[Rfam]
RNA sequence: CCAAUGUGGACAUCCAAGGAGGAUGCUGUCUUGGCUCUGUCCUUGUGGCGUAAAAGAGCGUAGAGCCCUUGGGCUCCAUGACGUAUGGUCUUGUUCCACGACAUUGGAGAGUGAGGUAGUCCCCGGCCUCCGGGCUGCUGAGGGCUUCAUCCUGUAUAUUCCUACAACUCCUCAGUCUUCAGUGACUGAGGAGACAAACCAUGCAGGAUACAUUC
Numbered sequence: 001c002c003a004a005u006g007u008g009g010a011c012a013u014c015c016a017a018g019g020a021g022g023a024u025g026c027u028g029u030c031u032u033g034g035c036u037c038u039g040u041c042c043u044u045g046u047g048g049c050g051u052a053a054a055a056g057a058g059c060g061u062a063g064a065g066c067c068c069u070u071g072g073g074c075u076c077c078a079u080g081a082c083g084u085a086u087g088g089u090c091u092u093g094u095u096c097c098a099c100g101a102c103a104u105u106g107g108a109g110a111g112u113g114a115g116g117u118a119g120u121c122c123c124c125g126g127c128c129u130c131c132g133g134g135c136u137g138c139u140g141a142g143g144g145c146u147u148c149a150u151c152c153u154g155u156a157u158a159u160u161c162c163u164a165c166a167a168c169u170c171c172u173c174a175g176u177c178u179u180c181a182g183u184g185a186c187u188g189a190g191g192a193g194a195c196a197a198a199c200c201a202u203g204c205a206g207g208a209u210a211c212a213u214u215c
Base pairs, nucleotide, nucleotide: 001107002106003105004104005103006102007101008042009041010040011039012038014034015033016032018029020027021026045099046098047097048096054092055091056090057089058086060084061083063079151207152206153205154204155203156202157201168193169192170191171190172189173188
Rfam assigns this 215-nucleotide RNA sequence from Microcaecilia unicolor to the family "Small nucleolar RNA SNORA73 family". Rfam's curators write: U17 (SNORA73A and SNORA73B) also known as E1 belongs to the H/ACA class of small nucleolar RNAs (snoRNAs). Vertebrate U17 is intron-encoded and ranges in length from 200-230 nucleotides, longer than most snoRNAs. It is one of the most abundant snoRNAs in human cells and is essential for the cleavage of pre-rRNA within the 5' external transcribed spacer (ETS). On this family, see Enright et al., RNA 1996: "5'ETS rRNA processing facilitated by four small RNAs: U14, E3, U17, and U3". The family is grouped with related families in Rfam's "snR30-U17 clan". Gene Ontology terms of the family: nucleolus and RNA processing. It scores 166 bits against the family's covariance model. By type it is an H/ACA-box small nucleolar RNA. Lineage of the source: Eukaryota > Eumetazoa > Chordata > Siphonopidae > Microcaecilia.